This 180-nucleotide sequence from Bifidobacterium actinocoloniiforme belongs to the Rfam family "Lysine riboswitch aptamer".
The family's consensus secondary structure is taken from published work.
Rfam's curators write: Riboswitches are metabolite binding domains within certain messenger RNAs that serve as precision sensors for their corresponding targets. Allosteric rearrangement of mRNA structure is mediated by ligand binding, and this results in modulation of gene expression. This family includes riboswitches that sense lysine in a number of genes involved in lysine metabolism, including lysC.
It scores 108 bits against the family's covariance model.
RNA sequence: AGUCACAGAAGAGGUCGCUGAGCUCAUCAGUAGCCAGGUGGAGGCGUUGCGGCGCCGGUGAAACCUGGCGAAAGGGUGGUCAGCCGAAACGUCCAGGAGCCGCUGAGCCUGGGGGUUGGGACUGGGUUCAACAAAUCCAGGACUGUCGCAGCGGAUGCGCUGCGGAGCGCUAUGGACGGU
Numbered sequence: 001a002g003u004c005a006c007a008g009a010a011g012a013g014g015u016c017g018c019u020g021a022g023c024u025c026a027u028c029a030g031u032a033g034c035c036a037g038g039u040g041g042a043g044g045c046g047u048u049g050c051g052g053c054g055c056c057g058g059u060g061a062a063a064c065c066u067g068g069c070g071a072a073a074g075g076g077u078g079g080u081c082a083g084c085c086g087a088a089a090c091g092u093c094c095a096g097g098a099g100c101c102g103c104u105g106a107g108c109c110u111g112g113g114g115g116u117u118g119g120g121a122c123u124g125g126g127u128u129c130a131a132c133a134a135a136u137c138c139a140g141g142a143c144u145g146u147c148g149c150a151g152c153g154g155a156u157g158c159g160c161u162g163c164g165g166a167g168c169g170c171u172a173u174g175g176a177c178g179g180u
Stems, first nucleotide, its partner, number of pairs: 006175001008173001010171002017084005023078001025076001033069007088117003092113006118144002122140007146165007